Source information
Shown here is a 164-nucleotide RNA sequence from Prolemur simus, a member of the family "U1 spliceosomal RNA". U1 is a small nuclear RNA (snRNA) component of the spliceosome (involved in pre-mRNA splicing). Its 5' end forms complementary base pairs with the 5' splice junction, thus defining the 5' donor site of an intron. There are significant differences in sequence and secondary structure between metazoan and yeast U1 snRNAs, the latter being much longer (568 nucleotides as compared to 164 nucleotides in human). The family's consensus secondary structure is taken from published work. The literature on the family includes a 1997 paper in Nucleic Acids Res by Zwieb, "The uRNA database".
RNA sequence: UUACCAACAGGGUAAGGGAUAUACCAUGAUCACAAAGGUGGAUUUCCCAAGGCAAGGCUUAUCCAUCUCACUCUGGAUGUGCUGACCCCUCCCAUUUUUCCAAAUGAGGGAAACCCAGCAGCAUAAUAUGUGGUAGUGGGGAACUGUGUUUGUGCUCUCCCAUG
Dot-bracket structure: ...........((..((((.(..((((..........)))).).))))(.((...(((.(((((..........))))).)))...)).)....(((.((.......)).))).......))................(((.(..(((....)))..))))...
Lineage of the source: Eukaryota > Metazoa > Dipnotetrapodomorpha > Strepsirrhini > Prolemur.